[Rfam]
RNA: Group II catalytic intron D1-D4-3
Organism: Marinobacter sp. ELB17
RNA sequence: CAACCCGCGAGGCGCGGUCUGGAGGAAGCCGCUAGCAAAGCUGCGAGCUGAUGAACAAGAACAUCAUAUGAGGCGUAGGCCGGAGGCGAGUUGGCACAAGCCGACGGGGCGGCCUCCCGCGAAGCCACGUGAUCUGACGGCCACCGUAAAUGAUGCAGUUGUGCAGUGAAAGUUCAUGUU
Numbered sequence: 001c002a003a004c005c006c007g008c009g010a011g012g013c014g015c016g017g018u019c020u021g022g023a024g025g026a027a028g029c030c031g032c033u034a035g036c037a038a039a040g041c042u043g044c045g046a047g048c049u050g051a052u053g054a055a056c057a058a059g060a061a062c063a064u065c066a067u068a069u070g071a072g073g074c075g076u077a078g079g080c081c082g083g084a085g086g087c088g089a090g091u092u093g094g095c096a097c098a099a100g101c102c103g104a105c106g107g108g109g110c111g112g113c114c115u116c117c118c119g120c121g122a123a124g125c126c127a128c129g130u131g132a133u134c135u136g137a138c139g140g141c142c143a144c145c146g147u148a149a150a151u152g153a154u155g156c157a158g159u160u161g162u163g164c165a166g167u168g169a170a171a172g173u174u175c176a177u178g179u180u
Stems, first nucleotide, its partner, number of pairs: 001016001005012002028180001030178002035173002040167006046160005062155006073147003078142004083138001084115004091107003